[Rfam]
The record is a 72-nucleotide RNA from Homo sapiens, which matches "mir-320 microRNA precursor family" in Rfam. Rfam 15.1 lists 659 matches to the family in 129 species. The organism belongs to Homo, within Eukaryota. Its family is annotated with miRNA-mediated post-transcriptional gene silencing, negative regulation of gene expression and RISC complex in the Gene Ontology.
RNA sequence: CUCCCCUCCGCCUUCUCUUCCCGGUUCUUCCCGGAGUCGGGAAAAGCUGGGUUGAGAGGGCGAAAAAGGAUG
Numbered sequence: 001c002u003c004c005c006c007u008c009c010g011c012c013u014u015c016u017c018u019u020c021c022c023g024g025u026u027c028u029u030c031c032c033g034g035a036g037u038c039g040g041g042a043a044a045a046g047c048u049g050g051g052u053u054g055a056g057a058g059g060g061c062g063a064a065a066a067a068g069g070a071u072g
Stems, first nucleotide, its partner, number of pairs: 013058005020051005028043006